This 79-nucleotide sequence from Coregonus sp. 'balchen' belongs to the Rfam family "Small nucleolar RNA SNORD79". A search with the family's covariance model found it, with a score of 56 bits. From the family's description: snoRNA U79 or Z22 is found in intron 7 of the gas5 gene in humans and is also present in mice. The family is grouped with related families in Rfam's "SNORD74 clan". Gene Ontology terms of the family: nucleolus and RNA processing.
RNA sequence: UACCGUUAAUGAUGUUGAAAAUAUCAAUGGGAAUCUCUCUGAGACAAUGUGAAAGAGGUUUUAGAUCACUGAAACGGUC
Numbered sequence: 001u002a003c004c005g006u007u008a009a010u011g012a013u014g015u016u017g018a019a020a021a022u023a024u025c026a027a028u029g030g031g032a033a034u035c036u037c038u039c040u041g042a043g044a045c046a047a048u049g050u051g052a053a054a055g056a057g058g059u060u061u062u063a064g065a066u067c068a069c070u071g072a073a074a075c076g077g078u079c
Stems, first nucleotide, its partner, number of pairs: 002078006